[Rfam]
RNA sequence: GGCGGAUUGAUUCGUCUCUGCUUGAUGUGACACGGCUGACAUACGGCAAAGCUACCGAUAACCUCAAGUUAGCGGAUGGCGGAGC
Numbered sequence: 001g002g003c004g005g006a007u008u009g010a011u012u013c014g015u016c017u018c019u020g021c022u023u024g025a026u027g028u029g030a031c032a033c034g035g036c037u038g039a040c041a042u043a044c045g046g047c048a049a050a051g052c053u054a055c056c057g058a059u060a061a062c063c064u065c066a067a068g069u070u071a072g073c074g075g076a077u078g079g080c081g082g083a084g085c
Stems, first nucleotide, its partner, number of pairs: 001022006055075003059071004
The record is an 85-nucleotide RNA sequence, which matches "RAGATH-28 RNA" in Rfam. Rfam's curators put it in the seed alignment.